[Rfam]
RNA sequence: AGGCUUGGUUUUCUGGGGGGUGGGCUCAGCCUGGCCCACCUCCCUUCAGACGAGUUUCCAACAGAGAUGCCCAGCCUCGUCUCUCACGAGAGAGGCAGAGGUGGUUAAGGCAGGAGCUUCACUCACCUGGGUUGUCCUUGCCUCACAUUC
Numbered sequence: 001a002g003g004c005u006u007g008g009u010u011u012u013c014u015g016g017g018g019g020g021u022g023g024g025c026u027c028a029g030c031c032u033g034g035c036c037c038a039c040c041u042c043c044c045u046u047c048a049g050a051c052g053a054g055u056u057u058c059c060a061a062c063a064g065a066g067a068u069g070c071c072c073a074g075c076c077u078c079g080u081c082u083c084u085c086a087c088g089a090g091a092g093a094g095g096c097a098g099a100g101g102u103g104g105u106u107a108a109g110g111c112a113g114g115a116g117c118u119u120c121a122c123u124c125a126c127c128u129g130g131g132u133u134g135u136c137c138u139u140g141c142c143u144c145a146c147a148u149u150c
Stems, first nucleotide, its partner, number of pairs: 002056006015044010066144002069141002074136001081131003090124003
Shown here is a 150-nucleotide sequence from Camelus ferus, a member of the family "Small Cajal body specific RNA 21". NCBI's taxonomy places the organism under Eukaryota, Craniata, Euteleostomi, Theria, Camelus. Rfam 15.1 lists 278 matches to the family in 138 species. The literature on the family includes a 2002 paper in EMBO J by Darzacq et al., "Cajal body-specific small nuclear RNAs: a novel class of 2'-O-methylation and pseudouridylation guide RNAs". The match comes from Rfam's covariance-model search (85 bits). From the family's description: scaRNAs are a specific class of small nuclear RNAs which localise to the Cajal bodies and guide the modification of RNA polymerase II transcribed spliceosomal RNAs U1, U2, U4, U5 and U12.